[Rfam]
RNA sequence: AGGUAGCAUUUAGAAAACAAGAUGCCUACCUGAUACAAUCUUCAUAGAGUAAAUUUGUCAUUUCCUGCUUGUGGCCUGUAAGCAUGUUUUGCAAGCCUCAAAUGACAAAACAAUUGA
Numbered sequence: 001a002g003g004u005a006g007c008a009u010u011u012a013g014a015a016a017a018c019a020a021g022a023u024g025c026c027u028a029c030c031u032g033a034u035a036c037a038a039u040c041u042u043c044a045u046a047g048a049g050u051a052a053a054u055u056u057g058u059c060a061u062u063u064c065c066u067g068c069u070u071g072u073g074g075c076c077u078g079u080a081a082g083c084a085u086g087u088u089u090u091g092c093a094a095g096c097c098u099c100a101a102a103u104g105a106c107a108a109a110a111c112a113a114u115u116g117a
Stems, first nucleotide, its partner, number of pairs: 001031003005027001006025006054110003067096008077086002